[Rfam]
RNA sequence: CGAGUCGGCCGGGCGACCGCGUCGGCCGGGGCGACCCGGCCGCCGAGGAAAGUCCGGACUCCACAGGGCAGGGUGGUGGCUAACAGCCACCCGGGGUGACCCGCGGGACAGUGCCACAGAGAACAGACCGCCACCCCGAGCGAUCGGGGCGGUAAGGGUGAAACGGUGGUGCAAGAGACCACCAGCGUGCCGGGUGACCGGUGCGGCUAGGUAAACCCCACCCGGAGCAAGACCAGACAGGCAGCGUUCGAGGGCGGCCCGCCCGAGCUGCCGGGUAGGUCGCUUGAGGCGUGCGGCAACGCACGUCCUAGAGGGAUGGUCGCCGCCCGCUCCCCGGAGCGGGGCACAGGAUCCGGCUUACAGGCCGGCUCGUCCA
Numbered sequence: 001c002g003a004g005u006c007g008g009c010c011g012g013g014c015g016a017c018c019g020c021g022u023c024g025g026c027c028g029g030g031g032c033g034a035c036c037c038g039g040c041c042g043c044c045g046a047g048g049a050a051a052g053u054c055c056g057g058a059c060u061c062c063a064c065a066g067g068g069c070a071g072g073g074u075g076g077u078g079g080c081u082a083a084c085a086g087c088c089a090c091c092c093g094g095g096g097u098g099a100c101c102c103g104c105g106g107g108a109c110a111g112u113g114c115c116a117c118a119g120a121g122a123a124c125a126g127a128c129c130g131c132c133a134c135c136c137c138g139a140g141c142g143a144u145c146g147g148g149g150c151g152g153u154a155a156g157g158g159u160g161a162a163a164c165g166g167u168g169g170u171g172c173a174a175g176a177g178a179c180c181a182c183c184a185g186c187g188u189g190c191c192g193g194g195u196g197a198c199c200g201g202u203g204c205g206g207c208u209a210g211g212u213a214a215a216c217c218c219c220a221c222c223c224g225g226a227g228c229a230a231g232a233c234c235a236g237a238c239a240g241g242c243a244g245c246g247u248u249c250g251a252g253g254g255c256g257g258c259c260c261g262c263c264c265g266a267g268c269u270g271c272c273g274g275g276u277a278g279g280u281c282g283c284u285u286g287a288g289g290c291g292u293g294c295g296g297c298a299a300c301g302c303a304c305g306u307c308c309u310a311g312a313g314g315g316a317u318g319g320u321c322g323c324c325g326c327c328c329g330c331u332c333c334c335c336g337g338a339g340c341g342g343g344g345c346a347c348a349g350g351a352u353c354c355g356g357c358u359u360a361c362a363g364g365c366c367g368g369c370u371c372g373u374c375c376a
Stems, first nucleotide, its partner, number of pairs: 001372010011361001012324007020045002023042006050359003054356005059227004066260004071223005076090005091105001092103004106218002111216002113212003128157002130153003134149006165183006185207001186205008231281004240272006252264004288307008